[Rfam]
RNA sequence: CCACUCUUGCACAGAAUGGAAUCAUGUUUUACUUACAGUGCAAGAAGGUAAGUGAACCCA
Numbered sequence: 001c002c003a004c005u006c007u008u009g010c011a012c013a014g015a016a017u018g019g020a021a022u023c024a025u026g027u028u029u030u031a032c033u034u035a036c037a038g039u040g041c042a043a044g045a046a047g048g049u050a051a052g053u054g055a056a057c058c059c060a
Stems, first nucleotide, its partner, number of pairs: 007043006028055001030054007
The record is a 60-nucleotide RNA from Betacoronavirus pipistrelli, which matches "Coronavirus 3' UTR pseudoknot" in Rfam. NCBI's taxonomy places the organism under Viruses, Riboviria, Pisoniviricetes, Nidovirales, Betacoronavirus pipistrelli. It is annotated as a cis-regulatory element. On this family, see Williams et al., J Virol 1999: "A phylogenetically conserved hairpin-type 3' untranslated region pseudoknot functions in coronavirus RNA replication". Rfam links the family to the GO term viral genome replication. Its Rfam clan is "Coronavirus 3' UTR". Rfam's curators write: Coronaviruses are plus-strand RNA viruses with ~30kb genomes. The 3' UTR region of coronavirus genomes contains a conserved ~55nt pseudoknot structure which has been shown to be necessary for viral genome replication. The mechanism of cis-regulation is unclear, but this element is postulated to function in the plus-strand. The seed alignment was expanded in 2020 by Eric Nawrocki.